The family of this 424-nucleotide sequence from Sphingobium fluviale is "Bacterial RNase P class A". By type it is a ribozyme. It scores 260 bits against the family's covariance model.

[Rfam]
RNA sequence: CCAGAGGGUCGGGCGGCCGCGGCGGGGGCAACCCCGGCGAGGAAAGUCCGGGCUCCACGAAACAACGGUGCCGGAUAACGUCCGGCGGGGGCGACCCCAGGGACAGUGCAACAGAGAGCAGGUCGCGUCAGCCGCAAGGCUUAAGGCUUCGGCCGCGCGAAGGUGAAAGGGUGCGGUAAGAGCGCACCGCGCCCCCGGCAACGGCGGGCGGCACGGUAAACCCCACCGGGAGCAAGACCGAAUAGGGACGGCGCGCUUGCCCGCAAGGGCCAAGCAGGGUGUUUCGCCCCAGAUCGUCCGGGUUGGUUGCUUGAGGGGCGGAGCAAUCCGCCUCCUAGAGGAAUGGCCGCCCAUCCGCCCGAACGUCCCUCACGGGAAACGGCGGCGCGGUGGACAAAACCCGGCUUAUAGACCCUCUGGCGCU
Numbered sequence: 001c002c003a004g005a006g007g008g009u010c011g012g013g014c015g016g017c018c019g020c021g022g023c024g025g026g027g028g029c030a031a032c033c034c035c036g037g038c039g040a041g042g043a044a045a046g047u048c049c050g051g052g053c054u055c056c057a058c059g060a061a062a063c064a065a066c067g068g069u070g071c072c073g074g075a076u077a078a079c080g081u082c083c084g085g086c087g088g089g090g091g092c093g094a095c096c097c098c099a100g101g102g103a104c105a106g107u108g109c110a111a112c113a114g115a116g117a118g119c120a121g122g123u124c125g126c127g128u129c130a131g132c133c134g135c136a137a138g139g140c141u142u143a144a145g146g147c148u149u150c151g152g153c154c155g156c157g158c159g160a161a162g163g164u165g166a167a168a169g170g171g172u173g174c175g176g177u178a179a180g181a182g183c184g185c186a187c188c189g190c191g192c193c194c195c196c197g198g199c200a201a202c203g204g205c206g207g208g209c210g211g212c213a214c215g216g217u218a219a220a221c222c223c224c225a226c227c228g229g230g231a232g233c234a235a236g237a238c239c240g241a242a243u244a245g246g247g248a249c250g251g252c253g254c255g256c257u258u259g260c261c262c263g264c265a266a267g268g269g270c271c272a273a274g275c276a277g278g279g280u281g282u283u284u285c286g287c288c289c290c291a292g293a294u295c296g297u298c299c300g301g302g303u304u305g306g307u308u309g310c311u312u313g314a315g316g317g318g319c320g321g322a323g324c325a326a327u328c329c330g331c332c333u334c335c336u337a338g339a340g341g342a343a344u345g346g347c348c349g350c351c352c353a354u355c356c357g358c359c360c361g362a363a364c365g366u367c368c369c370u371c372a373c374g375g376g377a378a379a380c381g382g383c384g385g386c387g388c389g390g391u392g393g394a395c396a397a398a399a400c401c402c403g404g405c406u407u408a409u410a411g412a413c414c415c416u417c418u419g420g421c422g423c424u
Stems, first nucleotide, its partner, number of pairs: 001420010011409001012351007020039002023036005044407003048404005053232004062284001064282001066228005071085005086100001087098004101223002106221002108217002123162001125158003129155001131153004170188006189212001190210005195204003236308004246299006277289004315334008